[Rfam]
RNA: LOOT RNA
RNA sequence: GGCCUAACCCCAUUGAUAAUUUCGGUGGGUAUGGCUUAGAAAUCCGUCCAAGGUAAAGAACUCCUCGUCAGGAGUACCUUGGACGGUCGUGUCGGGAAACCGGCAUGGAUGGGUUUACACCCAUC
Number, nucleotide and partner (000 for none) at each position: 001g036002g035003c034004c033005u000006a000007a000008c000009c029010c028011c027012a026013u025014u024015g023016a000017u000018a000019a000020u000021u000022u000023c015024g014025g013026u012027g011028g010029g009030u000031a000032u000033g004034g003035c002036u001037u000038a000039g000040a000041a000042a000043u000044c086045c085046g084047u083048c082049c081050a080051a079052g078053g077054u076055a000056a000057a000058g000059a000060a075061c074062u073063c072064c071065u000066c000067g000068u000069c000070a000071g064072g063073a062074g061075u060076a054077c053078c052079u051080u050081g049082g048083a047084c046085g045086g044087u000088c107089g106090u105091g104092u103093c102094g101095g100096g000097a000098a000099a000100c095101c094102g093103g092104c091105a090106u089107g088108g125109a124110u123111g122112g121113g120114u000115u000116u000117a000118c000119a000120c113121c112122c111123a110124u109125c108